[Rfam]
RNA sequence: AUGGAAGUGAUGAUUAUUUCCCCAAAUGAUCGAAGCUGAAAUAACUGAGCGAAUUACAUCUUUGUAUUGCACAGAGACCACCAAGCCAGGUGUAUCUGAUCCAU
Numbered sequence: 001a002u003g004g005a006a007g008u009g010a011u012g013a014u015u016a017u018u019u020c021c022c023c024a025a026a027u028g029a030u031c032g033a034a035g036c037u038g039a040a041a042u043a044a045c046u047g048a049g050c051g052a053a054u055u056a057c058a059u060c061u062u063u064g065u066a067u068u069g070c071a072c073a074g075a076g077a078c079c080a081c082c083a084a085g086c087c088a089g090g091u092g093u094a095u096c097u098g099a100u101c102c103a104u
Stems, first nucleotide, its partner, number of pairs: 001104005